[Rfam]
RNA sequence: UGCCGCUGCCCUCCUUGGGCGUUUCCUCCCUAGACUUGGGCCGUUCGUUCAAUCGGACGGCCCAUUUUUUUUUGAAUU
Numbered sequence: 001u002g003c004c005g006c007u008g009c010c011c012u013c014c015u016u017g018g019g020c021g022u023u024u025c026c027u028c029c030c031u032a033g034a035c036u037u038g039g040g041c042c043g044u045u046c047g048u049u050c051a052a053u054c055g056g057a058c059g060g061c062c063c064a065u066u067u068u069u070u071u072u073u074g075a076a077u078u
Base pairs, nucleotide, nucleotide: 008020009019010018011017038063039062040061041060042059043058044057045056046055
RNA: Makes More Granules Regulator RNA (mmgR)